mir-1302 microRNA precursor family: a 52-nucleotide RNA from Suricata suricatta. The family has 24 seed sequences and 16,160 matches in Rfam 15.1. NCBI's taxonomy places the organism under Eukaryota, Craniata, Vertebrata, Dipnotetrapodomorpha, Suricata.
[Rfam]
RNA sequence: UUUUUAGUAUAAAUAUAUGCCAUGCAAUAUUUGGGAUAAACUUAUGCUAAAA
Numbered sequence: 001u002u003u004u005u006a007g008u009a010u011a012a013a014u015a016u017a018u019g020c021c022a023u024g025c026a027a028u029a030u031u032u033g034g035g036a037u038a039a040a041c042u043u044a045u046g047c048u049a050a051a052a
Stems, first nucleotide, its partner, number of pairs: 006048007014040001016038001018036001020034002022031001